[Rfam]
RNA sequence: ACAGCCGGAUCGCCUAAUCCCGGGCGCCUCGCCCGGGAGCCGGGGACCCACACAGGAACCUGGGGUUAAGGCCUCGCGCCCGGGCUGCUCCCGCCCGCACCCGUCAGCUAACCCGGUCGGCGAGAUGGAGAGGAGUG
Numbered sequence: 001a002c003a004g005c006c007g008g009a010u011c012g013c014c015u016a017a018u019c020c021c022g023g024g025c026g027c028c029u030c031g032c033c034c035g036g037g038a039g040c041c042g043g044g045g046a047c048c049c050a051c052a053c054a055g056g057a058a059c060c061u062g063g064g065g066u067u068a069a070g071g072c073c074u075c076g077c078g079c080c081c082g083g084g085c086u087g088c089u090c091c092c093g094c095c096c097g098c099a100c101c102c103g104u105c106a107g108c109u110a111a112c113c114c115g116g117u118c119g120g121c122g123a124g125a126u127g128g129a130g131a132g133g134a135g136u137g
Stems, first nucleotide, its partner, number of pairs: 011122004018038009039117006049062002063102003071079002082096004
Shown here is a 137-nucleotide RNA from Microbispora sp. ATCC PTA-5024, a member of the family "c-di-AMP riboswitch aptamer (ydaO/yuaA leader)". Its family is annotated with cyclic-di-AMP binding and regulation of gene expression in the Gene Ontology. NCBI's taxonomy places the organism under Bacteria, Bacillati, Actinomycetota, Streptosporangiaceae, Microbispora. It scores 64 bits against the family's covariance model. This family represents a conserved RNA structure found upstream of the ydaO and yuaA genes in Bacillus subtilis and related genes in other bacteria.